[Rfam]
RNA sequence: UGAUCCAUUGCAUUCUUUUAAUCUAGGAAAUUACACUCGAGUGACCAUGAGAUGAGGAUAUUAUCUCUCUCUCUCUCUAGUGUAUUUCCUUGAUUAAAGAAAUUCAUUGGAUCA
Numbered sequence: 001u002g003a004u005c006c007a008u009u010g011c012a013u014u015c016u017u018u019u020a021a022u023c024u025a026g027g028a029a030a031u032u033a034c035a036c037u038c039g040a041g042u043g044a045c046c047a048u049g050a051g052a053u054g055a056g057g058a059u060a061u062u063a064u065c066u067c068u069c070u071c072u073c074u075c076u077c078u079a080g081u082g083u084a085u086u087u088c089c090u091u092g093a094u095u096a097a098a099g100a101a102a103u104u105c106a107u108u109g110g111a112u113c114a
Stems, first nucleotide, its partner, number of pairs: 001114007012103002016099008025090006032084006039077003
A member of the RNA family "MIR1509 microRNA precursor family" from Medicago truncatula, 114 nucleotides long. Rfam links the family to the GO terms RISC complex and miRNA-mediated post-transcriptional gene silencing. The sequence is in the family's curated seed alignment.